Notes
The record is an 85-nucleotide RNA from Geotalea daltonii, which matches "c-di-GMP-I riboswitch aptamer" in Rfam. Pairs were carried over by alignment from the consensus structure, which is taken from published work. Rfam 15.1 lists 5,092 matches to the family in 1,772 species.
[Rfam]
RNA sequence: UUUCCGAAAGGGUAAUCUGGAAGAAAUUCCAGUGACACAAAGCAUACGGAUCUGUUAUUAACUAACAGAUAGCCGGGCUGCCGAA
Numbered sequence: 001u002u003u004c005c006g007a008a009a010g011g012g013u014a015a016u017c018u019g020g021a022a023g024a025a026a027u028u029c030c031a032g033u034g035a036c037a038c039a040a041a042g043c044a045u046a047c048g049g050a051u052c053u054g055u056u057a058u059u060a061a062c063u064a065a066c067a068g069a070u071a072g073c074c075g076g077g078c079u080g081c082c083g084a085a
Stems, first nucleotide, its partner, number of pairs: 012038002017032006041079003047075003050070007